[Rfam]
RNA: Burkholderia RNA 14
RNA sequence: GUCGGCGUCGUGACGGUGCAGCCGCAAUCGGUACCGGUGGUCAGCGAGUUACCGGGUCGCACCAAUGCGUUCCUGGUGGCUCAGGUCCGGGCGCGCGUCGACGGCAUCGUGCUGCGUCGCGAAUUCACCGAAGGCUCCGACGUGAAGGCCGGCCAGCGCCUCUACAAGAUCGA
Dot-bracket structure: ..(((.((((((((.(..(.(.(.......)..).).).)))).)))..).)))((((((..(...((...(.(....((((......)))).((.(.((.(((((...))))))).).)).........).)))...)..))...))))......((.((.....))..)).